[Rfam]
RNA sequence: GAUGAAAAAUUCUCCGGAAUCUCUGUAAUCUCAUUGAUGAUCUCUUUUGAACCCUUUAUAUUCUGAUGACCAAAGUACCGUGUGU
Numbered sequence: 001g002a003u004g005a006a007a008a009a010u011u012c013u014c015c016g017g018a019a020u021c022u023c024u025g026u027a028a029u030c031u032c033a034u035u036g037a038u039g040a041u042c043u044c045u046u047u048u049g050a051a052c053c054c055u056u057u058a059u060a061u062u063c064u065g066a067u068g069a070c071c072a073a074a075g076u077a078c079c080g081u082g083u084g085u
Stems, first nucleotide, its partner, number of pairs: 002085003006081001
RNA: Small nucleolar RNA MBII-202